Record summary
This 71-nucleotide RNA sequence from Marinobacter nanhaiticus belongs to the Rfam family "Xanthine riboswitch aptamer (NMT1 RNA)". Pairs were carried over by alignment from the consensus structure, which is taken from published work. For this family Rfam cites "A bacterial riboswitch class senses xanthine and uric acid to regulate genes associated with purine oxidation" (Yu and Breaker, RNA, 2020).

[Rfam]
RNA sequence: AACAAGAGUAGAAGCGGUCAGGGGCCGGCGUCUUACAGGACGCACGGGCAUCCCGGGACAUUGCUCUUCAA
Numbered sequence: 001a002a003c004a005a006g007a008g009u010a011g012a013a014g015c016g017g018u019c020a021g022g023g024g025c026c027g028g029c030g031u032c033u034u035a036c037a038g039g040a041c042g043c044a045c046g047g048g049c050a051u052c053c054c055g056g057g058a059c060a061u062u063g064c065u066c067u068u069c070a071a
Stems, first nucleotide, its partner, number of pairs: 005067006015056001018058002021054003025047003
Dot-bracket structure: ....((((((....[..((.(((.(((.................)))....))).]))...))))))....